[Rfam]
RNA sequence: UGACGGAAGGGCACCACCAGGAGUGGCUGCGGCUUAAUUUGACUCAACACGGGGAACCUCACCAGGCCCAGACACCGGAAGGAUUGACAGAUUGAGAGCUCUUUCUUGAUUCGGUGGGUGGUGGUGCAUGGCCGUUCUUAGUUGGUGGAACGAUUUGUCUGGUUAAUUCCGAUAACGAACGAGACCCUAGCCUACUAACUAGUCGACGGAUCUCCAGCAAUUGGUGUCCAGUCGCAGCUUCUUCUUACAGGGAAACGGGCAAUUCUAGCCGCACGAGAUUGAGCAAUAACAGGCUUGUGAUGCCCUUAGAUGUUCUGGGCGCACGCGCGCUACACUGAAGGGAUCAACGUGUCCUCCCCUCCGAGAGGAGCGGGUAACCCGUGAAAUCCUUUCAUGAUAGGGAUUGGGGUUUGCAAUUGUUCUCCCAUGAACGAGGAAUUCCCAGUAAGGCGCAAGUCAUGGGAUUGCGUUGAUUACGCCUGCCCUUCGUACACA
Numbered sequence: 001u002g003a004c005g006g007a008a009g010g011g012c013a014c015c016a017c018c019a020g021g022a023g024u025g026g027c028u029g030c031g032g033c034u035u036a037a038u039u040u041g042a043c044u045c046a047a048c049a050c051g052g053g054g055a056a057c058c059u060c061a062c063c064a065g066g067c068c069c070a071g072a073c074a075c076c077g078g079a080a081g082g083a084u085u086g087a088c089a090g091a092u093u094g095a096g097a098g099c100u101c102u103u104u105c106u107u108g109a110u111u112c113g114g115u116g117g118g119u120g121g122u123g124g125u126g127c128a129u130g131g132c133c134g135u136u137c138u139u140a141g142u143u144g145g146u147g148g149a150a151c152g153a154u155u156u157g158u159c160u161g162g163u164u165a166a167u168u169c170c171g172a173u174a175a176c177g178a179a180c181g182a183g184a185c186c187c188u189a190g191c192c193u194a195c196u197a198a199c200u201a202g203u204c205g206a207c208g209g210a211u212c213u214c215c216a217g218c219a220a221u222u223g224g225u226g227u228c229c230a231g232u233c234g235c236a237g238c239u240u241c242u243u244c245u246u247a248c249a250g251g252g253a254a255a256c257g258g259g260c261a262a263u264u265c266u267a268g269c270c271g272c273a274c275g276a277g278a279u280u281g282a283g284c285a286a287u288a289a290c291a292g293g294c295u296u297g298u299g300a301u302g303c304c305c306u307u308a309g310a311u312g313u314u315c316u317g318g319g320c321g322c323a324c325g326c327g328c329g330c331u332a333c334a335c336u337g338a339a340g341g342g343a344u345c346a347a348c349g350u351g352u353c354c355u356c357c358c359c360u361c362c363g364a365g366a367g368g369a370g371c372g373g374g375u376a377a378c379c380c381g382u383g384a385a386a387u388c389c390u391u392u393c394a395u396g397a398u399a400g401g402g403a404u405u406g407g408g409g410u411u412u413g414c415a416a417u418u419g420u421u422c423u424c425c426c427a428u429g430a431a432c433g434a435g436g437a438a439u440u441c442c443c444a445g446u447a448a449g450g451c452g453c454a455a456g457u458c459a460u461g462g463g464a465u466u467g468c469g470u471u472g473a474u475u476a477c478g479c480c481u482g483c484c485c486u487u488c489g490u491a492c493a494c495a
Stems, first nucleotide, its partner, number of pairs: 001493002003490003007487007017478001020442005025333001028327004032322002038053004062318005068312001073116005086105002089102003120306002123304004129300001130298001131294003134290003141180003145176002147156003160171003187281001189279001191251003196247003201242002258270003337393007349380001351378001355374002359370004400432001405427004409422001448471001450470006

The record is a 495-nucleotide part of an RNA from Pugettia quadridens, which matches "Eukaryotic small subunit ribosomal RNA" in Rfam.
Gene Ontology terms of the family: ribosome and structural constituent of ribosome.
The organism belongs to Pugettia, within Eukaryota.
For this family Rfam cites "The comparative RNA web (CRW) site: an online database of comparative sequence and structure information for ribosomal, intron, and other RNAs" (Cannone et al., BMC Bioinformatics, 2002).
Its Rfam clan is "SSU clan".
Pairs were carried over by alignment from the consensus structure, which is taken from published work.